[Rfam]
RNA: TPP riboswitch aptamer (THI element)
Organism: Insolitispirillum peregrinum
RNA sequence: AGCCAUUCCGAGGGGUGCCGUUCCAUCAGGACGGCUGAGACCAGGCGCUUGGGCGUGCCGGGAACCCUUUGAACCUGAUCCGGGUCAUACCGGCGGAGGGAUAGGAACCUGAGCGUGCC
Numbered sequence: 001a002g003c004c005a006u007u008c009c010g011a012g013g014g015g016u017g018c019c020g021u022u023c024c025a026u027c028a029g030g031a032c033g034g035c036u037g038a039g040a041c042c043a044g045g046c047g048c049u050u051g052g053g054c055g056u057g058c059c060g061g062g063a064a065c066c067c068u069u070u071g072a073a074c075c076u077g078a079u080c081c082g083g084g085u086c087a088u089a090c091c092g093g094c095g096g097a098g099g100g101a102u103a104g105g106a107a108c109c110u111g112a113g114c115g116u117g118c119c
Stems, first nucleotide, its partner, number of pairs: 006107004011068004016062001017035007042061001044059005074099003080093004